[Rfam]
RNA sequence: GGACGGUGAAGAUUGAUAUUUGGUCUCGUUCGUCGUAACUGGCAUUUAUUUGCCUUGCCGACCAUCCUGUUAUAUCACCACCCAUAUUCUGAGUCC
Numbered sequence: 001g002g003a004c005g006g007u008g009a010a011g012a013u014u015g016a017u018a019u020u021u022g023g024u025c026u027c028g029u030u031c032g033u034c035g036u037a038a039c040u041g042g043c044a045u046u047u048a049u050u051u052g053c054c055u056u057g058c059c060g061a062c063c064a065u066c067c068u069g070u071u072a073u074a075u076c077a078c079c080a081c082c083c084a085u086a087u088u089c090u091g092a093g094u095c096c
Stems, first nucleotide, its partner, number of pairs: 001096004044056001
RNA: Small nucleolar RNA Z43
Organism: Triticum aestivum